[Rfam]
RNA sequence: GGCCGUAAUUCGGCCCUGAUGUAAGCCGUUAGGACGCGGGUUCGAUUCCCGCCAGCUCCACCAGAUGGGACUUGAGAGAACCGAAACGCGAGCUGAAAGAGGCUACGUCUCAGGUUCCAUCUGAUGGGGCUGACCUGGUUUCGACUGGCGGUAGAGAUACGGGACGCGGCACGAAAGGCGACCGACGUAAUCGGCGCAAAACCUACACCUGCCAAUGACAGCGUGUACGACCAGGCCAUUGCCGCCUGA
Dot-bracket structure: .((((........((.(........(((.(((...(((((.......)))))(((((((..................................................................)))))))............))).))).......).))....)))).((............))..............................................................
The record is a 249-nucleotide sequence from Rhodanobacter sp. LX-100, which matches "permuted transfer-messenger RNA" in Rfam. The organism belongs to Rhodanobacter, within Bacteria. Its family is annotated with RNA catabolic process in the Gene Ontology.